Phenylalanine leader peptide: a 122-nucleotide RNA sequence from Vibrio navarrensis. A reference for the family is Zurawski et al. (1978), "Nucleotide sequence of the leader region of the phenylalanine operon of Escherichia coli", Proc Natl Acad Sci U S A. It is annotated as a cis-regulatory leader. The organism belongs to Vibrio, within Bacteria. Rfam links the family to the GO term cellular amino acid metabolic process.
RNA sequence: AAUUCAAUCUACUGUUUAUUUUUGACUUCUUUUUCCUCCCCUAACCGCCGGAGGCAAAGCCGUUUGUGAAAGAAAAGUCAAAAACAAACAGAAAGCCUCCCAACUCGGGGGGCUUUUUUAUA
Numbered sequence: 001a002a003u004u005c006a007a008u009c010u011a012c013u014g015u016u017u018a019u020u021u022u023u024g025a026c027u028u029c030u031u032u033u034u035c036c037u038c039c040c041c042u043a044a045c046c047g048c049c050g051g052a053g054g055c056a057a058a059g060c061c062g063u064u065u066g067u068g069a070a071a072g073a074a075a076a077g078u079c080a081a082a083a084a085c086a087a088a089c090a091g092a093a094a095g096c097c098u099c100c101c102a103a104c105u106c107g108g109g110g111g112g113c114u115u116u117u118u119u120a121u122a
Stems, first nucleotide, its partner, number of pairs: 014089004019084010030073003034069002037052003053061003092116010